[Rfam]
RNA: c-di-GMP-I riboswitch aptamer
RNA sequence: AACCGGUAGGGGCAAAGCUGUUGUGAGGCAGUGACGCAAAGCCGCUGGGCCUUAAAAAUGUUAAGGUUGCCAGGCUGCCCGG
Numbered sequence: 001a002a003c004c005g006g007u008a009g010g011g012g013c014a015a016a017g018c019u020g021u022u023g024u025g026a027g028g029c030a031g032u033g034a035c036g037c038a039a040a041g042c043c044g045c046u047g048g049g050c051c052u053u054a055a056a057a058a059u060g061u062u063a064a065g066g067u068u069g070c071c072a073g074g075c076u077g078c079c080c081g082g
Stems, first nucleotide, its partner, number of pairs: 012037002017032006040076004046072003049067003056061001